[Rfam]
The family of this 98-nucleotide RNA sequence from Orrella dioscoreae is "Glycine riboswitch aptamer".
RNA sequence: AUGCAUGUUGCAGGAGAGCGCGCGUGGCCUGCUUGGCCGCUCGCCGCCGAAGGCGCAAUUCGCCCGGAAUCGCUCAGGCCCAGUAGGGCAACAUGCCU
Number, nucleotide and partner (000 for none) at each position: 001a000002u000003g000004c000005a000006u093007g092008u091009u090010g089011c088012a000013g000014g000015a000016g000017a000018g000019c000020g044021c043022g042023c000024g000025u000026g000027g000028c000029c000030u000031g000032c000033u000034u000035g000036g000037c000038c000039g000040c000041u000042c022043g021044c020045c000046g079047c078048c077049g075050a074051a000052g000053g073054c072055g071056c000057a000058a000059u000060u066061c000062g000063c000064c000065c000066g060067g000068a000069a000070u000071c055072g054073c053074u050075c049076a000077g048078g047079c046080c000081c000082a000083g000084u000085a000086g000087g000088g011089c010090a009091a008092c007093a006094u000095g000096c000097c000098u000

Description
A search with the family's covariance model found it, with a score of 41 bits.